[Rfam]
RNA sequence: ACGCCCAGGAUACGGAACACGCUCGGAUCCGGCGGGUCGAAACGGAUACGCUGACCUGGUGCGCCUCCGCAAUGGGAGGCCGCAUAGCCGACAGCCGUCGCACACAGGGAGCGCCUCAUG
Numbered sequence: 001a002c003g004c005c006c007a008g009g010a011u012a013c014g015g016a017a018c019a020c021g022c023u024c025g026g027a028u029c030c031g032g033c034g035g036g037u038c039g040a041a042a043c044g045g046a047u048a049c050g051c052u053g054a055c056c057u058g059g060u061g062c063g064c065c066u067c068c069g070c071a072a073u074g075g076g077a078g079g080c081c082g083c084a085u086a087g088c089c090g091a092c093a094g095c096c097g098u099c100g101c102a103c104a105c106a107g108g109g110a111g112c113g114c115c116u117c118a119u120g
Base pairs, nucleotide, nucleotide: 060084061083062082063081065078066077067076068075087101088100090099091098092097

This 120-nucleotide sequence from Kitasatospora sp. MMS16-BH015 belongs to the Rfam family "Streptomyces-metH RNA". By type it is a small RNA. The base pairs follow the family's consensus structure, which is taken from published work. A search with the family's covariance model found it, with a score of 78 bits. The source organism's lineage runs through Bacteria, Actinomycetota, Kitasatosporales, Streptomycetaceae and Kitasatospora.